[Rfam]
RNA: mir-1421 microRNA precursor family
RNA sequence: UGGUGUGAACAGGUUAUAUAUGGUGCAGUGUGAUAGUGGAAUAUACUGCAUCACAUGUAACCUCCCUACACCGU
Numbered sequence: 001u002g003g004u005g006u007g008a009a010c011a012g013g014u015u016a017u018a019u020a021u022g023g024u025g026c027a028g029u030g031u032g033a034u035a036g037u038g039g040a041a042u043a044u045a046c047u048g049c050a051u052c053a054c055a056u057g058u059a060a061c062c063u064c065c066c067u068a069c070a071c072c073g074u
Stems, first nucleotide, its partner, number of pairs: 003071005011063009021053001023051005